RNA sequence: AGCUGGUCUGAAGUGAGUUAUCUCAAUUGAUUGUUCAUGGUCAGUUACAGAUGGAACUCCUUGUUCUACUCUUUCCCCUAUUGUCACUACUGCAUUUGACUAGGAUAUA
Dot-bracket structure: ..((((((.((....(((.((.................((..((.....................))..))...........)).))).......))))))))......